[Rfam]
RNA sequence: GAGCGUUGGGAAACGGGGCCGUGUCGCUGUAUGAGAUUGUCAGGAAUUCUCACAGUGAACCGGUCUCUUUUUCCGACCCUUG
Numbered sequence: 001g002a003g004c005g006u007u008g009g010g011a012a013a014c015g016g017g018g019c020c021g022u023g024u025c026g027c028u029g030u031a032u033g034a035g036a037u038u039g040u041c042a043g044g045a046a047u048u049c050u051c052a053c054a055g056u057g058a059a060c061c062g063g064u065c066u067c068u069u070u071u072u073c074c075g076a077c078c079c080u081u082g
Stems, first nucleotide, its partner, number of pairs: 006076005015067007025057006033051003